[Rfam]
RNA sequence: UUCUUAUCAAGAGAGGUGGAGGGACCGGCCCGUUGAAACCUCAGCAACCAGCCGCUGGUGGUGGUCAGGUGCUAAUUCCUACAGAAGCAAAGCAGUCGUGCUUUUGUAAAGAUAAGAA
Number, nucleotide and partner (000 for none) at each position: 001u118002u117003c116004u115005u114006a113007u112008c111009a000010a000011g000012a000013g042014a041015g040016g039017u038018g000019g000020a000021g031022g030023g029024a000025c000026c000027g079028g078029c023030c022031c021032g000033u000034u000035g000036a000037a000038a017039c016040c015041u014042c013043a073044g072045c071046a070047a000048c069049c068050a000051g065052c064053c063054g062055c000056u000057g000058g000059u000060g000061g000062u054063g053064g052065u051066c000067a000068g049069g048070u046071g045072c044073u043074a000075a000076u000077u110078c028079c027080u000081a000082c106083a105084g104085a103086a102087g101088c100089a099090a000091a000092g000093c000094a000095g000096u000097c000098g000099u089100g088101c087102u086103u085104u084105u083106g082107u000108a000109a000110a077111g008112a007113u006114a005115a004116g003117a002118a001

SAM riboswitch aptamer (S box leader): a 118-nucleotide sequence from Bacillus taeanensis. The source organism's lineage runs through Bacteria, Bacillota, Bacilli, Bacillaceae and Bacillus. It scores 85 bits against the family's covariance model. Rfam 15.1 lists 9,625 matches to the family in 4,158 species.